Ma3 gene ribosomal frameshift signal: a 63-nucleotide sequence from Fukomys damarensis. Its family is annotated with translational frameshifting in the Gene Ontology. The organism belongs to Fukomys, within Eukaryota. A reference for the family is Wills et al. (2006), "A functional -1 ribosomal frameshift signal in the human paraneoplastic Ma3 gene", J Biol Chem.
RNA sequence: GGGAAACAAGGAUGAGGCUGGGGAGAUGAGCCACCCCGAGUUCUCCUCAAGAGAAUAGGCUCA
Dot-bracket structure: .............[.[.[[.[[[....(((((..]]].]]....].]..........))))).